[Rfam]
RNA sequence: CUGAGCCGCCAGUGAUGUUUUUUAUGCAGAAUGUCUGAACCUAUCUGAAGCAUCCAGUGAUGAUCCUCUAUGUGGUGCUAAGGCUUUUCUGCCA
Numbered sequence: 001c002u003g004a005g006c007c008g009c010c011a012g013u014g015a016u017g018u019u020u021u022u023u024a025u026g027c028a029g030a031a032u033g034u035c036u037g038a039a040c041c042u043a044u045c046u047g048a049a050g051c052a053u054c055c056a057g058u059g060a061u062g063a064u065c066c067u068c069u070a071u072g073u074g075g076u077g078c079u080a081a082g083g084c085u086u087u088u089c090u091g092c093c094a
Stems, first nucleotide, its partner, number of pairs: 004088002008084003
RNA: Small nucleolar RNA SNORD91 family